[Rfam]
Shown here is a 68-nucleotide sequence from Pseudomonas sp. SDI, a member of the family "Repression of heat shock gene expression (ROSE) element".
The match comes from Rfam's covariance-model search (71 bits).

RNA sequence: UACGCGAUGCCGAAGUCGGGUCGCGUUGAACACCAACUCGCUGAUAACUCAGGAGAUUUACCAUGACU
Numbered sequence: 001u002a003c004g005c006g007a008u009g010c011c012g013a014a015g016u017c018g019g020g021u022c023g024c025g026u027u028g029a030a031c032a033c034c035a036a037c038u039c040g041c042u043g044a045u046a047a048c049u050c051a052g053g054a055g056a057u058u059u060a061c062c063a064u065g066a067c068u
Stems, first nucleotide, its partner, number of pairs: 002026007010019003032057001037055003041052004